Annotation:
c-di-GMP-I riboswitch aptamer: a 91-nucleotide sequence from Paenibacillus rigui. Gene Ontology term of the family: cyclic-di-GMP binding. About the family: GEMM was predicted in a large-scale screen for bacterial structured RNA regulatory elements.
[Rfam]
Nucleotides: 091
Stems, first nucleotide, its partner, number of pairs: 012037002017032006040085004047081002049077003056071004
Number, partner (000 for none) and nucleotide at each position: 001000c002000u003000u004000a005000g006000a007000u008000c009000a010000a011000g012037g013036c014000a015000a016000a017032c018031c019030u020029g021028u022027c023000g024000a025000a026000a027022g028021a029020u030019a031018g032017g033000g034000a035000c036013g037012c038000a039000a040085a041084a042083c043082u044000a045000a046000a047081g048080g049077g050076a051075c052000u053000a054000c055000g056071c057070u058069u059068u060000c061000u062000a063000u064000g065000c066000c067000g068059a069058a070057a071056g072000u073000a074000c075051g076050u077049c078000a079000g080048c081047c082043a083042g084041u085040u086000a087000c088000c089000g090000a091000g